A member of the RNA family "ctRNA" from Ensifer meliloti, 47 nucleotides long. Lineage of the source: Bacteria > Pseudomonadota > Alphaproteobacteria > Hyphomicrobiales > Ensifer meliloti. The family's consensus secondary structure is taken from published work. By type it is an antisense RNA. Rfam's curators put it in the seed alignment. About the family: This family represents a group of ctRNAs (or counter-transcribed RNAs) from p42d and related plasmids. ctRNAs are small, highly structured, antisense sequences which are involved in negative regulation. Members of this family are known to bind to the mRNA of repC causing translational repression. This model contains the predicted stem-loop structure followed by a U-rich tract which is proposed to act as a Rho-independent transcriptional terminator.

RNA sequence: AGAAGGGUUUCCGCAGCGCUAGUCGUUCGGAAGCCUUUUUCUUUUGC
Numbered sequence: 001a002g003a004a005g006g007g008u009u010u011c012c013g014c015a016g017c018g019c020u021a022g023u024c025g026u027u028c029g030g031a032a033g034c035c036u037u038u039u040u041c042u043u044u045u046g047c
Stems, first nucleotide, its partner, number of pairs: 005036008015027004